[Rfam]
RNA sequence: CGGUCUUCUGCGCGGCGGAGCUCGACCGCAACAGCAAGUAGUCCUCGACUACAUCGAGAAGUACAAACAGGAGUUCGGCGUCGAGCCGAUCUGCAGGGUGCUCACCGAGCACGGUUGCCCGAUCGCGCCG
Numbered sequence: 001c002g003g004u005c006u007u008c009u010g011c012g013c014g015g016c017g018g019a020g021c022u023c024g025a026c027c028g029c030a031a032c033a034g035c036a037a038g039u040a041g042u043c044c045u046c047g048a049c050u051a052c053a054u055c056g057a058g059a060a061g062u063a064c065a066a067a068c069a070g071g072a073g074u075u076c077g078g079c080g081u082c083g084a085g086c087c088g089a090u091c092u093g094c095a096g097g098g099u100g101c102u103c104a105c106c107g108a109g110c111a112c113g114g115u116u117g118c119c120c121g122a123u124c125g126c127g128c129c130g
Base pairs, nucleotide, nucleotide: 015029016028017027018026076130077129078128079127080126087125088124090122091121093119094117095116096115